[Rfam]
RNA: Selenocysteine transfer RNA
Organism: Micromonosporaceae bacterium
RNA sequence: CGACCCCGCAGCGUUCCCGGUGGGGCGGCCCGCCUGCAAAGCGGGUUCAUCCGGUUCGACUCCGGGCGGGGUCU
Numbered sequence: 001c002g003a004c005c006c007c008g009c010a011g012c013g014u015u016c017c018c019g020g021u022g023g024g025g026c027g028g029c030c031c032g033c034c035u036g037c038a039a040a041g042c043g044g045g046u047u048c049a050u051c052c053g054g055u056u057c058g059a060c061u062c063c064g065g066g067c068g069g070g071g072u073c074u
Base pairs, nucleotide, nucleotide: 002073003072004071005070006069007068008067009066012027013026014025015024016023017022028046029045030044031043032042033041051065052064053063054062